[Rfam]
RNA sequence: GCACCAUCGAGACCGGCGGAGGGACAGGCCCUUUGAUGCCGGGGCAGCCCGCGGACAGCGCAAGCAUCCGCGUAGGUGCCAAAUCCUGCGGGGACCACCGCGUCCGCCGAAAGAUGGUUC
Numbered sequence: 001g002c003a004c005c006a007u008c009g010a011g012a013c014c015g016g017c018g019g020a021g022g023g024a025c026a027g028g029c030c031c032u033u034u035g036a037u038g039c040c041g042g043g044g045c046a047g048c049c050c051g052c053g054g055a056c057a058g059c060g061c062a063a064g065c066a067u068c069c070g071c072g073u074a075g076g077u078g079c080c081a082a083a084u085c086c087u088g089c090g091g092g093g094a095c096c097a098c099c100g101c102g103u104c105c106g107c108c109g110a111a112a113g114a115u116g117g118u119u120c
Base pairs, nucleotide, nucleotide: 001120003118004117005116006115007114008113013042014041015040016039017038021031022030023029025088026087027086028085043080044079045078046077048076049075050072051071052070053069054068055067084112089109090108091107093105
Shown here is a 120-nucleotide RNA sequence from Stenotrophomonas panacihumi, a member of the family "SAM riboswitch aptamer (S box leader)".
It scores 77 bits against the family's covariance model.
Its Rfam clan is "SAM clan".
The source organism's lineage runs through Bacteria, Pseudomonadati, Pseudomonadota, Gammaproteobacteria and Stenotrophomonas.